Small nucleolar RNA SNORD113/SNORD114 family: a 73-nucleotide RNA sequence from Panthera tigris. Rfam links the family to the GO terms nucleolus and RNA processing. Rfam's curators write: The imprinted human domain at 14q32 contains two clusters of tandemly repeated small nucleolar RNAs named 14q(I) and 14q(II) snoRNAs. These two clusters are named SNORD113 and SNORD114 respectively in the HGNC approved gene symbol nomenclature. The snoRNAs found in both clusters are clearly related and are represented here by a single family. These snoRNAs are intron encoded and are processed from the tissue-specific non-coding human MEG8 RNA, which lies downstream of the imprinted genes DLK1 and GTL2. snoRNAs 14q(I) and 14q(II) differ from previously identified C/D box snoRNAs in their expression profiles and lack of complementarity to rRNA and snRNA. Homologues of these snoRNAs are found in the imprinted non-coding mouse transcript Rian, and in the rat non-coding Bsr (brain-specific repetitive) RNA. The base pairs follow the family's consensus structure, which is taken from published work. On this family, see Cavaille et al., Hum Mol Genet 2002: "Identification of tandemly-repeated C/D snoRNA genes at the imprinted human 14q32 domain reminiscent of those at the Prader-Willi/Angelman syndrome region". The source organism's lineage runs through Eukaryota, Metazoa, Deuterostomia, Eutheria and Panthera tigris.
[Rfam]
RNA sequence: UGGACCAGUGAUGAUGACUGCUGGUGUCUGACUCGUGGAAGAUGAAUAAUGAGUGUGGAACACUGAGGGUCAA
Numbered sequence: 001u002g003g004a005c006c007a008g009u010g011a012u013g014a015u016g017a018c019u020g021c022u023g024g025u026g027u028c029u030g031a032c033u034c035g036u037g038g039a040a041g042a043u044g045a046a047u048a049a050u051g052a053g054u055g056u057g058g059a060a061c062a063c064u065g066a067g068g069g070u071c072a073a
Stems, first nucleotide, its partner, number of pairs: 002071002005068002